Description
The record is a 169-nucleotide sequence, which matches "Group II catalytic intron D1-D4-3" in Rfam. On this family, see Bonen and Vogel, Trends Genet 2001: "The ins and outs of group II introns". A search with the family's covariance model found it, with a score of 112 bits.

[Rfam]
RNA sequence: UUUGGAGUGAUCCAUGCAGUGAAGGAAGCCAAACGGCAAAAGUCUGUACCGAGGAACACAAAGCGCAUAAGAGGCUAACUAAACUGGGUAAGUAUGCACAGCAAUGCAAAGCCUAGAGACAACAGGUUUAGUUAGUAGAUGCGUCGGGGAUAGACGGAAAGAGGAAGAG
Dot-bracket structure: (.((((....)))).).............(......(....((((((.(((...........((((((.....(((.(((((((.((((..((((........))))...))))...........))))))).)))..))))))))).).))))).....).....)..